This 88-nucleotide RNA from Streptomyces sp. Root264 belongs to the Rfam family "dauA ncRNA motif". The base pairs follow the family's consensus structure, which is taken from published work. Rfam describes the family as follows. dauA ncRNA motif was reported as a strong cis regulatory motif candidate, with potential to be a cis regulatory riboswitch type, it have been identified in genomes of the genus Streptomyces. It is annotated as a cis-regulatory element. Gene Ontology term of the family: regulation of gene expression. NCBI's taxonomy places the organism under Bacteria, Bacillati, Actinomycetes, Kitasatosporales, Streptomyces. The literature on the family includes a 2024 paper in Nucleic Acids Res by Narunsky et al., "The discovery of novel noncoding RNAs in 50 bacterial genomes".

RNA sequence: ACGCCCCUGCCGGGAGCACGCCCAGGAUGCCGGGACUCCGGCACCACCGCGCCCACUGCCGGAUGGUCUUCUGAACCGAGGCGUCAUG
Number, nucleotide and partner (000 for none) at each position: 001a084002c083003g082004c081005c080006c000007c000008u000009g000010c062011c061012g060013g059014g000015a057016g056017c000018a000019c000020g052021c051022c000023c000024a000025g048026g047027a000028u043029g042030c041031c040032g039033g038034g000035a000036c000037u000038c033039c032040g031041g030042c029043a028044c000045c000046a000047c026048c025049g000050c000051g021052c020053c000054c000055a000056c016057u015058g000059c013060c012061g011062g010063a000064u078065g077066g076067u000068c000069u000070u000071c000072u000073g000074a000075a000076c066077c065078g064079a000080g005081g004082c003083g002084u001085c000086a000087u000088g000